[Rfam]
RNA sequence: GGUUUAAUUACCCAAAUCUGAGGUAAUUGAAUAUUUCGGCCCAAAGUUUCGGCUGCUCUGGCCUGAAGUGAAAUUUUGGAACGUCCUGCUAUUUAGCGAGACAGC
Number, nucleotide and partner (000 for none) at each position: 001g000002g000003u031004u030005u029006a028007a027008u026009u025010a024011c023012c022013c000014a000015a000016a000017u000018c000019u000020g000021a000022g012023g011024u010025a009026a008027u007028u006029g005030a004031a003032u000033a000034u068035u067036u066037c065038g000039g062040c061041c060042c000043a000044a000045a000046g000047u000048u000049u000050c000051g000052g000053c000054u000055g000056c000057u000058c000059u000060g041061g040062c039063c000064u000065g037066a036067a035068g034069u000070g000071a000072a000073a000074u000075u000076u000077u000078g000079g000080a000081a000082c000083g102084u101085c100086c000087u098088g097089c096090u000091a000092u000093u000094u000095a000096g089097c088098g087099a000100g085101a084102c083103a000104g000105c000

Annotation:
The record is a 105-nucleotide RNA from Acanthocheilonema viteae, which matches "SL1 RNA" in Rfam. A search with the family's covariance model found it, with a score of 104 bits. By type it is a non-coding RNA gene. NCBI's taxonomy places the organism under Eukaryota, Metazoa, Bilateria, Onchocercidae, Acanthocheilonema. Rfam links the family to the GO term mRNA trans splicing, via spliceosome. The family has 28 seed sequences and 1,095 matches in Rfam 15.1. On this family, see Dassanayake et al., Gene 2001: "Trans-spliced leader RNA, 5S-rRNA genes and novel variant orphan spliced-leader of the lymphatic filarial nematode Wuchereria bancrofti, and a sensitive polymerase chain reaction based detection assay". About the family: This family represents the SL1 RNA. SL1 is commonly located in the spacer region between 5S-rRNA genes where it is involved in trans-splicing. Trans-splicing is a form of RNA processing. The acquisition of a spliced leader from a SL RNA is a intra-molecular reaction which precisely joins exons derived from separately transcribed RNAs.